[Rfam]
RNA: Lysine riboswitch aptamer
RNA sequence: UGGUGGGGUAGAGGCGCGGAAAAUAUGAGUAAUAUAAUGGAGGCCGGCAGCCGUUGAAAUUAUAUGAAAGGAUAACCGCCGAAGCAUUCAGAAUGCCUGUCUGUAUGCUGGGCCUGUAUCAAAGAGGUACGGGACUGUCACAUAUGGUUUCCCUUAAAUUAUAUGUGGAGAGCUAUCUUGCUU
Numbered sequence: 001u002g003g004u005g006g007g008g009u010a011g012a013g014g015c016g017c018g019g020a021a022a023a024u025a026u027g028a029g030u031a032a033u034a035u036a037a038u039g040g041a042g043g044c045c046g047g048c049a050g051c052c053g054u055u056g057a058a059a060u061u062a063u064a065u066g067a068a069a070g071g072a073u074a075a076c077c078g079c080c081g082a083a084g085c086a087u088u089c090a091g092a093a094u095g096c097c098u099g100u101c102u103g104u105a106u107g108c109u110g111g112g113c114c115u116g117u118a119u120c121a122a123a124g125a126g127g128u129a130c131g132g133g134a135c136u137g138u139c140a141c142a143u144a145u146g147g148u149u150u151c152c153c154u155u156a157a158a159u160u161a162u163a164u165g166u167g168g169a170g171a172g173c174u175a176u177c178u179u180g181c182u183u
Base pairs, nucleotide, nucleotide: 006178007177008176009175010174011173016079017078018077019076023073024072032065033064034063035062036061037060038059083109084108085107086106087105089103090102091101092100110136111135113133114132115131116130117129118128119127120126138168139167140166141165142164143163144162145161146160147159148158
Dot-bracket structure: .....((((((....((((...((.......(((((((....................)))))))......))..))))...(((((.((((.......)))).)))))((.((((((((.....)))))))).)).(((((((((((.........)))))))))))....)))))).....